Rfam assigns this 160-nucleotide sequence from Spiroplasma chinense to the family "Ribosomal protein L10 leader". The base pairs follow the family's consensus structure, which was predicted with CMfinder. Rfam links the family to the GO term regulation of gene expression. This family is a putative r-protein leader autoregulatory structure found in B. subtilis and other low-GC Gram-positive bacteria. It is located in the 5' untranslated regions of mRNAs encoding ribosomal proteins L10 and L12 (rplJ-rplL). A Rho-independent transcription terminator structure that is probably involved in regulation is included at the 3' end.
RNA sequence: AUAUAUUUGCUAUUCGUACCGAAGAAAGUAACUGGGAUUUAUCCCUUAAUUUGUUACCGAGGAAUGAAACUACAUAUAUAAUCUGUUUGUUUAAGAGCGGAUAAUUAGUGUAUUUUUAAUUUGCCUCGGAAACUAUUUUCCGAGGUUUUAUUUUGAUCUA
Numbered sequence: 001a002u003a004u005a006u007u008u009g010c011u012a013u014u015c016g017u018a019c020c021g022a023a024g025a026a027a028g029u030a031a032c033u034g035g036g037a038u039u040u041a042u043c044c045c046u047u048a049a050u051u052u053g054u055u056a057c058c059g060a061g062g063a064a065u066g067a068a069a070c071u072a073c074a075u076a077u078a079u080a081a082u083c084u085g086u087u088u089g090u091u092u093a094a095g096a097g098c099g100g101a102u103a104a105u106u107a108g109u110g111u112a113u114u115u116u117u118a119a120u121u122u123g124c125c126u127c128g129g130a131a132a133c134u135a136u137u138u139u140c141c142g143a144g145g146u147u148u149u150a151u152u153u154u155g156a157u158c159u160a
Stems, first nucleotide, its partner, number of pairs: 028057005034045003124145009